Rfam assigns this 102-nucleotide RNA from Jeotgalibacillus alimentarius to the family "Purine riboswitch aptamer". From the family's description: Riboswitches are metabolite binding domains within certain messenger RNAs that serve as precision sensors for their corresponding targets.
RNA sequence: ACUAACUUCAUAUGAAUUCCUUAUAUAACUAUGGUGAUAUGGACCAUAAGUCUCUACCUGGCAGCCUUAAAUUGCCGGACUAUAAGGAAAGUCAUUCUAUGC
Numbered sequence: 001a002c003u004a005a006c007u008u009c010a011u012a013u014g015a016a017u018u019c020c021u022u023a024u025a026u027a028a029c030u031a032u033g034g035u036g037a038u039a040u041g042g043a044c045c046a047u048a049a050g051u052c053u054c055u056a057c058c059u060g061g062c063a064g065c066c067u068u069a070a071a072u073u074g075c076c077g078g079a080c081u082a083u084a085a086g087g088a089a090a091g092u093c094a095u096u097c098u099a100u101g102c
Stems, first nucleotide, its partner, number of pairs: 018088008030048006058078007